[Rfam]
Nucleotides: 303
Stems, first nucleotide, its partner, number of pairs: 001019001029039002050239005056233002061182006071173003183219002188214004195209005223282001225281005241268005249260001288301005
Number, partner (000 for none) and nucleotide at each position: 001019u002000g003000a004000g005000u006000a007000a008000u009000c010000u011000c012000u013000u014000u015000u016000u017000u018000g019001g020000c021000c022000g023000a024000u025000u026000u027000g028000u029039g030038g031000g032000a033000g034000u035000g036000a037000a038030c039029c040000u041000c042000c043000u044000g045000c046000u047000a048000u049000a050239a051238a052237c053236c054235a055000u056233c057232a058000a059000a060000u061182u062181g063180c064179g065178g066177g067000a068000a069000c070000a071173c072172c073171u074000u075000a076000a077000a078000g079000c080000a081000a082000u083000u084000u085000u086000a087000a088000c089000c090000a091000a092000a093000c094000a095000a096000a097000c098000a099000u100000g101000g102000u103000a104000a105000c106000a107000u108000a109000g110000u111000u112000u113000g114000u115000g116000g117000c118000a119000c120000a121000g122000g123000u124000a125000a126000u127000g128000a129000c130000u131000c132000g133000u134000g135000g136000u137000a138000a139000g140000g141000u142000a143000a144000a145000a146000u147000c148000a149000a150000a151000a152000u153000u154000g155000a156000u157000g158000c159000a160000c161000g162000a163000a164000a165000g166000g167000a168000a169000a170000u171073a172072g173071g174000u175000u176000a177066u178065c179064c180063g181062c182061a183219g184218c185000c186000a187000a188214g189213c190212a191211c192000c193000u194000a195209c196208a197207u198206a199205c200000u201000u202000a203000u204000a205199g206198u207197a208196u209195g210000g211191g212190u213189g214188u215000g216000c217000a218184g219183u220000u221000c222000a223282u224000c225281g226280a227279c228278u229277a230000a231000a232057u233056g234000u235054u236053g237052g238051u239050u240000g241268g242267c243266a244265u245264g246000u247000a248000u249260a250000a251000u252000a253000u254000u255000u256000u257000a258000u259000a260249u261000u262000g263000u264245c265244g266243u267242g268241c269000u270000u271000a272000a273000g274000a275000u276000a277229u278228a279227g280226u281225c282223a283000a284000a285000c286000c287000c288301u289300a290299a291298u292297g293000g294000a295000a296000a297292c298291a299290u300289u301288a302000u303000a